RNA sequence: GGAAGCGUAUCGUCACCGGUGUGGCGCCCAGACUUCAAAUCUGGUGUGACGUCGAGAGGCGUCAGGUAGGUUCGACUCCUAUACGCUUCC
Number, nucleotide and partner (000 for none) at each position: 001g090002g089003a088004a087005g086006c085007g084008u083009a082010u000011c026012g025013u024014c023015a022016c021017c000018g000019g000020u000021g016022u015023g014024g013025c012026g011027c000028c044029c043030a042031g041032a040033c000034u000035u000036c000037a000038a000039a000040u032041c031042u030043g029044g028045u000046g000047u064048g063049a062050c061051g060052u000053c000054g000055a000056g000057a000058g000059g000060c051061g050062u049063c048064a047065g000066g000067u081068a080069g079070g078071u000072u000073c000074g000075a000076c000077u000078c070079c069080u068081a067082u009083a008084c007085g006086c005087u004088u003089c002090c001

Rfam assigns this 90-nucleotide RNA sequence from Humidesulfovibrio mexicanus to the family "Selenocysteine transfer RNA". A search with the family's covariance model found it, with a score of 86 bits.